The record is a 111-nucleotide RNA sequence from Roseburia sp. CAG:309, which matches "drum RNA" in Rfam.
Firmicutes, Bacteroidetes (1 example), Proteobacteria (2 examples), Spirochaetes (2 examples).
The base pairs follow the family's consensus structure, which is taken from published work.
It is annotated as a small RNA.
RNA sequence: AAGCGGUGAAGUAAGGUGCUGUGCCAGAGAGCAGUGCCUUAUGAACUUUAUAUGGGUUUGACGUUUACCACAAUCUGGUUAGAGAUGCUAUCUCGAAAGAAAAUGUCGGGG
Numbered sequence: 001a002a003g004c005g006g007u008g009a010a011g012u013a014a015g016g017u018g019c020u021g022u023g024c025c026a027g028a029g030a031g032c033a034g035u036g037c038c039u040u041a042u043g044a045a046c047u048u049u050a051u052a053u054g055g056g057u058u059u060g061a062c063g064u065u066u067a068c069c070a071c072a073a074u075c076u077g078g079u080u081a082g083a084g085a086u087g088c089u090a091u092c093u094c095g096a097a098a099g100a101a102a103a104u105g106u107c108g109g110g111g
Base pairs, nucleotide, nucleotide: 001048002047003046011042012041013040014039015038016037017036018035019034020033021032022031024078025077026076027075061106062105063104082094083093084092085091